[Rfam]
RNA sequence: UGGAAAUGAUGAUUUCUCGCUGAACUGAUGUGAUCCAAAAUCACACAUGAGCAAAUCCUCAAGAUAGUCAAGUCCUGAUCCAG
Numbered sequence: 001u002g003g004a005a006a007u008g009a010u011g012a013u014u015u016c017u018c019g020c021u022g023a024a025c026u027g028a029u030g031u032g033a034u035c036c037a038a039a040a041u042c043a044c045a046c047a048u049g050a051g052c053a054a055a056u057c058c059u060c061a062a063g064a065u066a067g068u069c070a071a072g073u074c075c076u077g078a079u080c081c082a083g
Base pairs, nucleotide, nucleotide: 001082002081003080004079
The family of this 83-nucleotide sequence from Laticauda laticaudata is "Small nucleolar RNA SNORD20". By type it is a C/D-box small nucleolar RNA. NCBI's taxonomy places the organism under Eukaryota, Bilateria, Episquamata, Elapidae, Laticauda. Pairs were carried over by alignment from the consensus structure. Its family is annotated with nucleolus and RNA processing in the Gene Ontology.